[Rfam]
Shown here is an 87-nucleotide RNA from Cebus imitator, a member of the family "mir-515 microRNA precursor family".
RNA sequence: UCUCAUGCAGUGAUUCUCCAAUGGGAAGCACUUCUUGUCGUCUGAAAUAAAACAAAGUGCUUCCUUUUAGAGAGUUACUGUCUGAGA
Dot-bracket structure: (((((.((((((((.(((.((.(((((((((((....(.............)..))))))))))).)).))).)))))))).)))))
The family's consensus secondary structure was predicted with RNAalifold.
Rfam 15.1 lists 1,056 matches to the family in 27 species.
For this family Rfam cites "Identification of hundreds of conserved and nonconserved human microRNAs" (Bentwich et al., Nat Genet, 2005).